[Rfam]
RNA sequence: GCCGGUUUCGCUUAGUGGUAAAGCAACUGACUCGUAAUCAGUAGCCACGAGUUCAAUUCUCGUAACCGGCA
Numbered sequence: 001g002c003c004g005g006u007u008u009c010g011c012u013u014a015g016u017g018g019u020a021a022a023g024c025a026a027c028u029g030a031c032u033c034g035u036a037a038u039c040a041g042u043a044g045c046c047a048c049g050a051g052u053u054c055a056a057u058u059c060u061c062g063u064a065a066c067c068g069g070c071a
Stems, first nucleotide, its partner, number of pairs: 001070007010024004026042005047063005

Record summary:
tRNA: a 71-nucleotide RNA sequence from Mycoplasma tauri. Taxonomically the source falls in Mycoplasma (Bacteria, Bacillati, Mollicutes, Mycoplasmataceae). The match comes from Rfam's covariance-model search (71 bits).